[Rfam]
RNA sequence: AGCUUUGUGCAGUGGCAGUUUCGUAGCCAAUGAGGUUUAUCCAAGGCGCGAUUAUUGCUAAUUGAAAAUUAUGAUUUUCCUAAUUUAUAAUUGUUUAGUAUUGGUAGAUCUUUCAUUAUUGAACUGAGACAUCCUU
Numbered sequence: 001a002g003c004u005u006u007g008u009g010c011a012g013u014g015g016c017a018g019u020u021u022c023g024u025a026g027c028c029a030a031u032g033a034g035g036u037u038u039a040u041c042c043a044a045g046g047c048g049c050g051a052u053u054a055u056u057g058c059u060a061a062u063u064g065a066a067a068a069u070u071a072u073g074a075u076u077u078u079c080c081u082a083a084u085u086u087a088u089a090a091u092u093g094u095u096u097a098g099u100a101u102u103g104g105u106a107g108a109u110c111u112u113u114c115a116u117u118a119u120u121g122a123a124c125u126g127a128g129a130c131a132u133c134c135u136u
Stems, first nucleotide, its partner, number of pairs: 021051004026047003034042002082111001083109006090102001092100001127136002
Dot-bracket structure: ....................((((.(((.....((.....))..)))))))..............................(((((((.(.(.......).).)))))).)...............((......))
Shown here is a 136-nucleotide RNA from Aotus nancymaae, a member of the family "U4 spliceosomal RNA". Lineage of the source: Eukaryota > Teleostomi > Amniota > Simiiformes > Aotus. The family is grouped with related families in Rfam's "U4 clan".